[Rfam]
RNA sequence: AUCCUUAUGCAUGGGAAAUACACAUUUCAGUGAGGAUUCGUCCGAGAUUGUGUUUUUGCUGGUUGAAAUUUAAAUUUAAUUUUAACCUGACCCUUCUCCUCAUAGUCAACUAUUAUAAUGGAUAUUCGCUUUAUUGAAUAUCUUUUAAAAGA
Numbered sequence: 001a002u003c004c005u006u007a008u009g010c011a012u013g014g015g016a017a018a019u020a021c022a023c024a025u026u027u028c029a030g031u032g033a034g035g036a037u038u039c040g041u042c043c044g045a046g047a048u049u050g051u052g053u054u055u056u057u058g059c060u061g062g063u064u065g066a067a068a069u070u071u072a073a074a075u076u077u078a079a080u081u082u083u084a085a086c087c088u089g090a091c092c093c094u095u096c097u098c099c100u101c102a103u104a105g106u107c108a109a110c111u112a113u114u115a116u117a118a119u120g121g122a123u124a125u126u127c128g129c130u131u132u133a134u135u136g137a138a139u140a141u142c143u144u145u146u147a148a149a150a151g152a
Stems, first nucleotide, its partner, number of pairs: 020053005027047002034043003088128003091121002094118002097115001141152004
Dot-bracket structure: ...................(((((..((.....(((....)))..)).)))))..................................(((((.((.(.................).)).))....)))............((((....))))